[Rfam]
RNA sequence: GUGGCAGCGAUGAUUGGAAAAUAAUUCCUCGUUCUGAAUGCUGUGGUUACAGCGUGACAGACUCUUUUCCACCCAUAGAAUAUGAGCUCC
Numbered sequence: 001g002u003g004g005c006a007g008c009g010a011u012g013a014u015u016g017g018a019a020a021a022u023a024a025u026u027c028c029u030c031g032u033u034c035u036g037a038a039u040g041c042u043g044u045g046g047u048u049a050c051a052g053c054g055u056g057a058c059a060g061a062c063u064c065u066u067u068u069c070c071a072c073c074c075a076u077a078g079a080a081u082a083u084g085a086g087c088u089c090c
Stems, first nucleotide, its partner, number of pairs: 003090002006088002
A member of the RNA family "Small nucleolar RNA snoR8a" from Genlisea aurea, 90 nucleotides long. Gene Ontology terms of the family: nucleolus and RNA processing. Lineage of the source: Eukaryota > Tracheophyta > Mesangiospermae > Gunneridae > Genlisea. A reference for the family is Brown et al. (2001), "Multiple snoRNA gene clusters from Arabidopsis", RNA.